Overview:
Glycine riboswitch aptamer: an 88-nucleotide RNA sequence from Halobacillus salinus. Gene Ontology term of the family: glycine biosynthetic process. From the family's description: This family represents the bacterial glycine riboswitch. Glycine riboswitches usually consist of two metabolite-binding aptamers domains with similar structures in tandem. The aptamers cooperatively bind glycine to regulate the expression of downstream genes. In Bacillus subtilis, this riboswitch is found upstream of the gcvT operon which controls glycine degradation. Pairs were carried over by alignment from the consensus structure. The match comes from Rfam's covariance-model search (69 bits).
RNA sequence: ACGACUGCAGGGGGAGAGACUACAUCCGUAGCGCCGAAGGAGCAAACAACUUUGUGAAUCUCUCAGGCAAAAAGACCUCUGUGGGACG
Number, nucleotide and partner (000 for none) at each position: 001a000002c000003g000004a000005c000006u083007g082008c081009a080010g079011g078012g077013g076014g000015a000016g000017a000018g000019a000020c031021u030022a029023c028024a000025u000026c000027c000028g023029u022030a021031g020032c000033g068034c067035c066036g064037a063038a000039g000040g062041a061042g060043c000044a000045a000046a055047c054048a000049a000050c000051u000052u000053u000054g047055u046056g000057a000058a000059u000060c042061u041062c040063u037064c036065a000066g035067g034068c033069a000070a000071a000072a000073a000074g000075a000076c013077c012078u011079c010080u009081g008082u007083g006084g000085g000086a000087c000088g000